Record summary: The family of this 195-nucleotide RNA from Sulfuriferula sp. AH1 is "Proteobacterial sRNA psRNA2".
Nucleotides: 195
Base pairs, nucleotide, nucleotide: 001068002067003066004065005064006063007062009061010060014025015024016023017022029058030057031056032055033054034053035052036051038049039048070193071192075155076154077153081148082147084146085145090107091106092104094102095101096100110138111137112136114133115132116131173186174185175184176182177181
Number, partner (000 for none) and nucleotide at each position: 001068g002067g003066g004065u005064u006063a007062c008000u009061c010060c011000u012000u013000g014025g015024c016023g017022c018000u019000u020000g021000c022017g023016c024015g025014c026000u027000u028000u029058g030057u031056u032055u033054g034053a035052u036051a037000a038049a039048g040000a041000u042000u043000c044000g045000c046000a047000c048039c049038u050000a051036u052035a053034u054033c055032a056031a057030a058029c059000c060010g061009g062007g063006u064005a065004a066003c067002c068001u069000c070193a071192c072000c073000u074000u075155u076154g077153g078000c079000a080000a081148g082147g083000c084146c085145a086000u087000a088000c089000u090107g091106u092104c093000a094102g095101a096100u097000c098000a099000a100096g101095u102094c103000g104092g105000a106091a107090c108000u109000a110138c111137u112136a113000c114133a115132c116131c117000u118000a119000c120000a121000c122000u123000a124000u125000u126000a127000a128000g129000a130000a131116g132115g133114u134000c135000g136112u137111a138110g139000a140000a141000a142000u143000u144000g145085u146084g147082c148081c149000g150000c151000c152000a153077u154076c155075a156000c157000g158000u159000c160000c161000a162000g163000a164000g165000c166000a167000a168000u169000c170000g171000u172000g173186g174185u175184u176182g177181a178000a179000c180000c181177u182176c183000u184175a185174a186173c187000a188000a189000u190000u191000c192071g193070u194000u195000g

By type it is a small RNA. For this family Rfam cites "Computational prediction and transcriptional analysis of sRNAs in Nitrosomonas europaea" (Gvakharia et al., FEMS Microbiol Lett, 2010).